[Rfam]
RNA sequence: AUGAUUCUAGUUUAAGUCAUGAAAAGGUUUUUUUCAGUGUGCAUAAUCUGGAAAACCUUAUCAUGGCUAAUACCAUGACCAU
Number, nucleotide and partner (000 for none) at each position: 001a000002u000003g080004a000005u078006u077007c000008u075009a000010g073011u072012u000013u070014a000015a068016g067017u066018c065019a064020u063021g062022a061023a000024a000025a000026g000027g000028u055029u054030u053031u052032u051033u050034u000035c000036a000037g000038u000039g000040u000041g000042c000043a000044u000045a000046a000047u000048c000049u000050g033051g032052a031053a030054a029055a028056c000057c000058u000059u000060a000061u022062c021063a020064u019065g018066g017067c016068u015069a000070a013071u000072a011073c010074c000075a008076u000077g006078a005079c000080c003081a000082u000
Annotation
mir-1422 microRNA precursor family: an 82-nucleotide sequence from Ornithorhynchus anatinus. It is one of the family's seed sequences. The base pairs follow the family's consensus structure, which was predicted with RNAalifold.